[Rfam]
RNA sequence: CAUGUGUGGGAUGAUGAUUUUCCUAUUCCCCAGCUUAUAUACCAUGCUGAUAGUAUAGAUCAUGCCAAUUUUGUCUGACCACACAUU
Dot-bracket structure: .((((((((.....................................................................)))))))).